[Rfam]
Nucleotides: 089
Base pairs, nucleotide, nucleotide: 003089004088006086007085
Number, partner (000 for none) and nucleotide at each position: 001000g002000u003089u004088g005000g006086u007085g008000c009000a010000g011000u012000g013000a014000u015000u016000a017000g018000a019000a020000a021000a022000a023000a024000u025000c026000a027000u028000u029000c030000c031000u032000c033000g034000u035000u036000c037000u038000g039000a040000g041000a042000c043000c044000g045000a046000a047000a048000u049000g050000g051000c052000a053000u054000g055000a056000u057000a058000g059000a060000c061000u062000u063000u064000g065000a066000u067000a068000c069000a070000c071000c072000c073000a074000u075000a076000g077000a078000a079000u080000a081000u082000g083000a084000g085007c086006g087000c088004c089003a
Shown here is an 89-nucleotide RNA from Carex littledalei, a member of the family "Small nucleolar RNA snoR8a".
A reference for the family is Brown et al. (2001), "Multiple snoRNA gene clusters from Arabidopsis", RNA.
The family's RNA type in Rfam is C/D-box small nucleolar RNA.
Gene Ontology terms of the family: nucleolus and RNA processing.
The family's consensus secondary structure was predicted with WAR.
NCBI's taxonomy places the organism under Eukaryota, Spermatophyta, Mesangiospermae, Cariceae, Carex subgen. Euthyceras.
A search with the family's covariance model found it, with a score of 68 bits.